[Rfam]
Shown here is an 84-nucleotide RNA sequence, a member of the family "mir-548 microRNA precursor family".
RNA sequence: UAUUGGGUUGGUGCAAAAGUAAUUGUGGUUUUUGACAUUUCUUUUAAUGGCAAAACCCACAAUUACUUUUGCACCAAUCUAAUA
Numbered sequence: 001u002a003u004u005g006g007g008u009u010g011g012u013g014c015a016a017a018a019g020u021a022a023u024u025g026u027g028g029u030u031u032u033u034g035a036c037a038u039u040u041c042u043u044u045u046a047a048u049g050g051c052a053a054a055a056c057c058c059a060c061a062a063u064u065a066c067u068u069u070u071g072c073a074c075c076a077a078u079c080u081a082a083u084a
Base pairs, nucleotide, nucleotide: 001084002083003082004081005080006079007078008077009076010075011074012073013072014071015070016069017068018067019066020065021064022063023062024061025060026059027058028057030055031054032053033052034051036049037048038047039046

Rfam's curators put it in the seed alignment.